[Rfam]
This 128-nucleotide RNA sequence from Nioella halotolerans belongs to the Rfam family "Ruegeria cis8 sRNA". The match comes from Rfam's covariance-model search (106 bits). It is annotated as a small RNA. The organism belongs to Nioella, within Bacteria. The family's consensus secondary structure was predicted with RNAfold.
RNA sequence: ACGGACAGGAUCUUGGCGAUAUACGGGAUCAGCGGCAGGUUCAGCACCAGCAGAACGAGGUUGCCGAUAUACAUCGAGAUGAUGACCGCCCAGAAGAUCUGCGGCUCGUCCACCAUGAGCCGCGGCCC
Numbered sequence: 001a002c003g004g005a006c007a008g009g010a011u012c013u014u015g016g017c018g019a020u021a022u023a024c025g026g027g028a029u030c031a032g033c034g035g036c037a038g039g040u041u042c043a044g045c046a047c048c049a050g051c052a053g054a055a056c057g058a059g060g061u062u063g064c065c066g067a068u069a070u071a072c073a074u075c076g077a078g079a080u081g082a083u084g085a086c087c088g089c090c091c092a093g094a095a096g097a098u099c100u101g102c103g104g105c106u107c108g109u110c111c112a113c114c115a116u117g118a119g120c121c122g123c124g125g126c127c128c
Base pairs, nucleotide, nucleotide: 004017006015007014008013026128027127029125030124033122034121035120036119038114039113040112043109046106048104050102051101052100053099054098061093062092063091072084073083074082075081